[Rfam]
RNA sequence: UGUAAAUGCCCUCCUUGGGCGUUUCCUCCCUAGAUUUCACCGCGCCACGAGCGCGGUUUUUUUUGCCGCUG
Numbered sequence: 001u002g003u004a005a006a007u008g009c010c011c012u013c014c015u016u017g018g019g020c021g022u023u024u025c026c027u028c029c030c031u032a033g034a035u036u037u038c039a040c041c042g043c044g045c046c047a048c049g050a051g052c053g054c055g056g057u058u059u060u061u062u063u064u065g066c067c068g069c070u071g
Base pairs, nucleotide, nucleotide: 008020009019010018011017040056041055042054043053044052045051

A member of the RNA family "Makes More Granules Regulator RNA (mmgR)" from Parahoeflea halophila, 71 nucleotides long. The match comes from Rfam's covariance-model search (60 bits). Lineage of the source: Bacteria > Pseudomonadati > Pseudomonadota > Rhizobiaceae > Parahoeflea. It is annotated as a small RNA.